[Rfam]
RNA sequence: GGGGAGGCGACAAACCGUGGGGAGGAAGCCUGCGAUGCUCGAUCGGCGUAGCAACCGGCAGCAUCCCGCCAAAGCUGCGAGGUGACGAACAGAAACGUCGUAGAGGCGGGCGGGGAUUGAGGCGAGUGGACCGAGGACUACAAAGCCGUUUCCGACAAAGAUCCUUUCCGUAGACGACGCACUUGCGCAGCGAAAGUUCACGUC
Numbered sequence: 001g002g003g004g005a006g007g008c009g010a011c012a013a014a015c016c017g018u019g020g021g022g023a024g025g026a027a028g029c030c031u032g033c034g035a036u037g038c039u040c041g042a043u044c045g046g047c048g049u050a051g052c053a054a055c056c057g058g059c060a061g062c063a064u065c066c067c068g069c070c071a072a073a074g075c076u077g078c079g080a081g082g083u084g085a086c087g088a089a090c091a092g093a094a095a096c097g098u099c100g101u102a103g104a105g106g107c108g109g110g111c112g113g114g115g116a117u118u119g120a121g122g123c124g125a126g127u128g129g130a131c132c133g134a135g136g137a138c139u140a141c142a143a144a145g146c147c148g149u150u151u152c153c154g155a156c157a158a159a160g161a162u163c164c165u166u167u168c169c170g171u172a173g174a175c176g177a178c179g180c181a182c183u184u185g186c187g188c189a190g191c192g193a194a195a196g197u198u199c200a201c202g203u204c
Stems, first nucleotide, its partner, number of pairs: 001016002006011001061204001070196001074191006080184005096179006106171003110167001112166006121147003126141004